[Rfam]
RNA sequence: CGGCGGCGACACGGGAGUCCGGUGCGCCGGGCUGAGAGAGGGACACGGAGUCCCUGACCGUCGAACCUGAUCCGGAUCAUGCCGGCGCAGGAACGUCGCUCUCUGCAUGCA
Numbered sequence: 001c002g003g004c005g006g007c008g009a010c011a012c013g014g015g016a017g018u019c020c021g022g023u024g025c026g027c028c029g030g031g032c033u034g035a036g037a038g039a040g041g042g043a044c045a046c047g048g049a050g051u052c053c054c055u056g057a058c059c060g061u062c063g064a065a066c067c068u069g070a071u072c073c074g075g076a077u078c079a080u081g082c083c084g085g086c087g088c089a090g091g092a093a094c095g096u097c098g099c100u101c102u103c104u105g106c107a108u109g110c111a
Stems, first nucleotide, its partner, number of pairs: 006099005011061004016055001017032005040054004066091004072085004